[Rfam]
RNA sequence: UGUUCGCUGCGAUGAAUCACAAGGAAGGUAUGUGUGUAAGUUGGCUCUUGAAAAAGGCCUCCUUACUUGAUUAUAAAUCCUAAACUGGUCAUAAAGUCUUGAGCAAAUG
Number, nucleotide and partner (000 for none) at each position: 001u109002g108003u107004u106005c000006g104007c103008u000009g000010c000011g000012a000013u000014g000015a000016a000017u000018c000019a000020c000021a000022a000023g000024g000025a000026a000027g000028g000029u000030a000031u000032g000033u000034g000035u000036g066037u065038a064039a063040g062041u000042u000043g000044g000045c000046u000047c000048u000049u000050g000051a000052a000053a000054a000055a000056g000057g000058c000059c000060u000061c000062c040063u039064u038065a037066c036067u000068u000069g000070a000071u000072u000073a000074u000075a000076a000077a000078u000079c000080c000081u000082a000083a000084a000085c000086u000087g000088g000089u000090c000091a000092u000093a000094a000095a000096g000097u000098c000099u000100u000101g000102a000103g007104c006105a000106a004107a003108u002109g001
Description:
The record is a 109-nucleotide RNA sequence from Aegilops tauschii, which matches "Small nucleolar RNA Z118/Z121/Z120" in Rfam. Taxonomically the source falls in Aegilops tauschii (Eukaryota, Spermatophyta, Poaceae, Aegilops). By type it is a C/D-box small nucleolar RNA.